The record is a 46-nucleotide RNA from Actinotalea ferrariae, which matches "L31-Actinobacteria ribosomal protein leader" in Rfam.
Lineage of the source: Bacteria > Actinomycetota > Actinomycetes > Micrococcales > Actinotalea ferrariae.
By type it is a cis-regulatory leader.
The family is grouped with related families in Rfam's "Ribosomal Protein L31 Leader clan".
RNA sequence: UUGGUCUCCGGUUCCCGUGGACGAGCCCGUCCGCGACCCGGAGGUC
Numbered sequence: 001u002u003g004g005u006c007u008c009c010g011g012u013u014c015c016c017g018u019g020g021a022c023g024a025g026c027c028c029g030u031c032c033g034c035g036a037c038c039c040g041g042a043g044g045u046c
Base pairs, nucleotide, nucleotide: 003046004045006044008041009040010039011038016035017034018033019032020031021030022029023028